Source information: This 52-nucleotide sequence from Propylenella binzhouense belongs to the Rfam family "serC leader". This family is a putative regulatory RNA structure that is found upstream of the serC-serA operon in some alpha-proteobacteria. The final stem of the structure overlaps the ribosome binding site of the serC reading frame. Lineage of the source: Bacteria > Pseudomonadati > Alphaproteobacteria > Hyphomicrobiales > Propylenella. Gene Ontology term of the family: regulation of gene expression.
[Rfam]
RNA sequence: CGACGGGACACCCCUCCCCACCGAGGGGCGCCUAUCUGAAAGGGUAGCGACA
Numbered sequence: 001c002g003a004c005g006g007g008a009c010a011c012c013c014c015u016c017c018c019c020a021c022c023g024a025g026g027g028g029c030g031c032c033u034a035u036c037u038g039a040a041a042g043g044g045u046a047g048c049g050a051c052a
Stems, first nucleotide, its partner, number of pairs: 011028006032047006